[Rfam]
RNA sequence: GGAAUAUAAGAACCCGUCUCUUAACUUUUAACUAAAAAAAUUUAGAACCGGCUCUUAAAACUCUUAUUUAAGAUUCGGUUCUUAACUUUUUAAAUUAAAAAUUAAGAGGCAGUUCUUAUAUUCA
Numbered sequence: 001g002g003a004a005u006a007u008a009a010g011a012a013c014c015c016g017u018c019u020c021u022u023a024a025c026u027u028u029u030a031a032c033u034a035a036a037a038a039a040a041u042u043u044a045g046a047a048c049c050g051g052c053u054c055u056u057a058a059a060a061c062u063c064u065u066a067u068u069u070a071a072g073a074u075u076c077g078g079u080u081c082u083u084a085a086c087u088u089u090u091u092a093a094a095u096u097a098a099a100a101a102u103u104a105a106g107a108g109g110c111a112g113u114u115c116u117u118a119u120a121u122u123c124a
Stems, first nucleotide, its partner, number of pairs: 002123012016110009026100006033093001035091005041085002044082004

About this RNA:
A member of the RNA family "MIR9563 microRNA precursor family" from Brassica carinata, 124 nucleotides long. The organism belongs to Brassica, within Eukaryota. The family has 2 seed sequences and 5,832 matches in Rfam 15.1. Its family is annotated with miRNA-mediated post-transcriptional gene silencing and RISC complex in the Gene Ontology.